[Rfam]
RNA sequence: AAAGUGCAGGUGUUAACGAGGACAGAGCUGCCCUGCGAGCCUUCACGGAGGCUAUGACCAGGUAUUCAGCUCCUCCUGGAGACGAACCUCAG
Numbered sequence: 001a002a003a004g005u006g007c008a009g010g011u012g013u014u015a016a017c018g019a020g021g022a023c024a025g026a027g028c029u030g031c032c033c034u035g036c037g038a039g040c041c042u043u044c045a046c047g048g049a050g051g052c053u054a055u056g057a058c059c060a061g062g063u064a065u066u067c068a069g070c071u072c073c074u075c076c077u078g079g080a081g082a083c084g085a086a087c088c089u090c091a092g
Stems, first nucleotide, its partner, number of pairs: 006087001010083001013080002018075001020073002026071003030066001032062004038053006
Rfam assigns this 92-nucleotide RNA sequence from Orthohepacivirus hominis to the family "Hepatitis C virus stem-loop SL8670".
The family's consensus secondary structure was predicted with RNAfold.
Rfam classes the family as a cis-regulatory element.
Taxonomically the source falls in Orthohepacivirus (Viruses, Kitrinoviricota, Flasuviricetes, Amarillovirales).